Rfam assigns this 65-nucleotide RNA to the family "L31-Corynebacteriaceae ribosomal protein leader".
Its Rfam clan is "Ribosomal Protein L31 Leader clan".
Rfam classes the family as a cis-regulatory leader.
[Rfam]
RNA sequence: ACUCAGGCACGAUCUUUACCCUUUCAGGAUGUAAAGAACCGACCUGAAGUUUCAACCCUGAGGGA
Numbered sequence: 001a002c003u004c005a006g007g008c009a010c011g012a013u014c015u016u017u018a019c020c021c022u023u024u025c026a027g028g029a030u031g032u033a034a035a036g037a038a039c040c041g042a043c044c045u046g047a048a049g050u051u052u053c054a055a056c057c058c059u060g061a062g063g064g065a
Stems, first nucleotide, its partner, number of pairs: 001050003004046004013037007020028002